[Rfam]
RNA: FMN riboswitch aptamer (RFN element)
RNA sequence: CAAUUCCUUCGGGGCAGGGUGAAAUUCCCGACCGGCGGUGAUCACGAUUUUUGUGUAAGCCCGCGAGCCUCUCGUCGCUUCAAGCGGCAGGGUGCAGGAUUUGGUGCGAUUCCAAAGCCGACAGUACAGUCUGGAUGGGAGAAGGAUGAC
Numbered sequence: 001c002a003a004u005u006c007c008u009u010c011g012g013g014g015c016a017g018g019g020u021g022a023a024a025u026u027c028c029c030g031a032c033c034g035g036c037g038g039u040g041a042u043c044a045c046g047a048u049u050u051u052u053g054u055g056u057a058a059g060c061c062c063g064c065g066a067g068c069c070u071c072u073c074g075u076c077g078c079u080u081c082a083a084g085c086g087g088c089a090g091g092g093u094g095c096a097g098g099a100u101u102u103g104g105u106g107c108g109a110u111u112c113c114a115a116a117g118c119c120g121a122c123a124g125u126a127c128a129g130u131c132u133g134g135a136u137g138g139g140a141g142a143a144g145g146a147u148g149a150c
Base pairs, nucleotide, nucleotide: 005146006145007144008143009142010141017029018028019027031130032129033120034119035064036063037062038061059118060117069094100116101115102114103113104112122133123132124131